[Rfam]
RNA: Plastid-psbN 5UTR RNA
Organism: Vitis rotundifolia
RNA sequence: UGCAACACCCAUAAAGGAGUACUUUUCUAUACAAGAGCUACUUUACCAUAUUUCGAAUUC
Number, nucleotide and partner (000 for none) at each position: 001u000002g000003c000004a000005a000006c000007a000008c000009c000010c000011a000012u000013a000014a000015a000016g044017g043018a042019g041020u040021a039022c000023u037024u036025u035026u034027c000028u000029a000030u000031a000032c000033a000034a026035g025036a024037g023038c000039u021040a020041c019042u018043u017044u016045a000046c000047c000048a000049u000050a000051u000052u000053u000054c000055g000056a000057a000058u000059u000060c000